About this RNA
Rfam assigns this 352-nucleotide sequence from Flavivirga aquatica to the family "Bacterial RNase P class A".
RNA sequence: UAAGCAGAUCGCCUUAUCGCUUUUGUAUUGAUUUUUUUAAUACUAGAGAGGAAAGUCCGGACACCAUAGUGCAAUAUAGUGGUUAACAGCCACCAGUCGUGAGGCUAGGAAAAGUGCAACAGAAAGUAUGUACAGGUAAUGCUGUAGUGAAAUCAGGUAAACUCUAUUAGGUGCAAUGUCAUGUAUACUAACGUUUGAGCGUGCACGCGCGAUUGUUAGAGGGUAGACAGCUAGAGUAUAUUAGUAAUAAUAUACGUAGAUAAAUGAUAAGGAUAUUUUAUAUUUUAAUUUGGAUAAAUCCAGAAACAAGAUUUAAGAUAUACAGAAUCCGGCUUAUAGAACUACUUAGAAA
Number, nucleotide and partner (000 for none) at each position: 001u348002a347003a346004g345005c000006a343007g342008a000009u340010c339011g337012c272013c271014u270015u269016a268017u267018c266019g000020c048021u047022u046023u045024u000025g043026u042027a041028u040029u039030g038031a000032u000033u000034u000035u000036u000037u000038u030039a029040a028041u027042a026043c025044u000045a023046g022047a021048g020049a000050g000051g000052a000053a335054a334055g333056u000057c332058c331059g330060g329061a328062c173063a172064c171065c170066a000067u000068a000069g206070u205071g204072c000073a000074a000075u000076a167077u166078a165079g093080u092081g091082g090083u089084u000085a000086a000087c000088a000089g083090c082091c081092a080093c079094c108095a106096g105097u104098c103099g000100u000101g000102a000103g098104g097105c096106u095107a000108g094109g164110a163111a000112a000113a000114g162115u161116g158117c157118a000119a000120c000121a000122g000123a000124a000125a000126g000127u000128a000129u000130g000131u146132a145133c144134a143135g142136g000137u000138a000139a000140u000141g000142c135143u134144g133145u132146a131147g000148u000149g000150a000151a000152a000153u000154c000155a000156g000157g117158u116159a000160a000161a115162c114163u110164c109165u078166a077167u076168u000169a000170g065171g064172u063173g062174c000175a000176a000177u229178g228179u227180c226181a000182u000183g000184u000185a000186u000187a000188c219189u218190a217191a216192c215193g000194u000195u000196u000197g000198a213199g000200c211201g210202u209203g000204c071205a070206c069207g000208c000209g202210c201211g200212a000213u198214u000215g192216u191217u190218a189219g188220a000221g000222g000223g000224u000225a000226g180227a179228c178229a177230g000231c000232u000233a000234g000235a000236g255237u254238a253239u252240a251241u250242u249243a248244g000245u000246a000247a000248u243249a242250a241251u240252a239253u238254a237255c236256g000257u000258a000259g000260a000261u000262a000263a000264a000265u000266g018267a017268u016269a015270a014271g013272g012273a000274u000275a000276u000277u000278u000279u000280a000281u000282a000283u000284u000285u000286u000287a000288a000289u000290u000291u000292g000293g000294a000295u000296a000297a000298a000299u000300c000301c000302a000303g000304a000305a000306a000307c000308a000309a000310g000311a000312u000313u000314u000315a000316a000317g000318a000319u000320a000321u000322a000323c000324a000325g000326a000327a000328u061329c060330c059331g058332g057333c055334u054335u053336a000337u011338a000339g010340a009341a000342c007343u006344a000345c004346u003347u002348a001349g000350a000351a000352a000

It scores 182 bits against the family's covariance model.